[Rfam]
RNA: Alphacoronavirus 5'UTR
RNA sequence: ACAUGGGGACUUAUUGUGAUUUUCUAUCUGCGGAUAGUAAGUGUCACUACUUAGACCUUGUGUCUCCUCAUCUCAACUAAACGAAAUUUUAUCCAUCGCACACAUGUUCGCAUGUGUUUGCGUAUGGUGCAAUUGAAAUUUCAUUAGGUUGCCUAAUUUGGGUAACAAGUGCAGUGCGUCCUAGUGGCUCUGAGUGAGGGUUCCGUCCCCUCUCAUCCAUUACAAACGCCCUUUGCCAGUUCCGUCUGGUGAAGUGUGUGGAAGUCAAGUUCCGUCUUGUCUGAAACCUGUAACUGUGCCCAAUGGCUAGCAACCAAUUG
Numbered sequence: 001a002c003a004u005g006g007g008g009a010c011u012u013a014u015u016g017u018g019a020u021u022u023u024c025u026a027u028c029u030g031c032g033g034a035u036a037g038u039a040a041g042u043g044u045c046a047c048u049a050c051u052u053a054g055a056c057c058u059u060g061u062g063u064c065u066c067c068u069c070a071u072c073u074c075a076a077c078u079a080a081a082c083g084a085a086a087u088u089u090u091a092u093c094c095a096u097c098g099c100a101c102a103c104a105u106g107u108u109c110g111c112a113u114g115u116g117u118u119u120g121c122g123u124a125u126g127g128u129g130c131a132a133u134u135g136a137a138a139u140u141u142c143a144u145u146a147g148g149u150u151g152c153c154u155a156a157u158u159u160g161g162g163u164a165a166c167a168a169g170u171g172c173a174g175u176g177c178g179u180c181c182u183a184g185u186g187g188c189u190c191u192g193a194g195u196g197a198g199g200g201u202u203c204c205g206u207c208c209c210c211u212c213u214c215a216u217c218c219a220u221u222a223c224a225a226a227c228g229c230c231c232u233u234u235g236c237c238a239g240u241u242c243c244g245u246c247u248g249g250u251g252a253a254g255u256g257u258g259u260g261g262a263a264g265u266c267a268a269g270u271u272c273c274g275u276c277u278u279g280u281c282u283g284a285a286a287c288c289u290g291u292a293a294c295u296g297u298g299c300c301c302a303a304u305g306g307c308u309a310g311c312a313a314c315c316a317a318u319u320g
Stems, first nucleotide, its partner, number of pairs: 012049002015046002019042003024037005053065004083142007093127004098121003102117006150312002158303006165297002168295002170292005183221004193211002198209003231254009258287002264281001266279004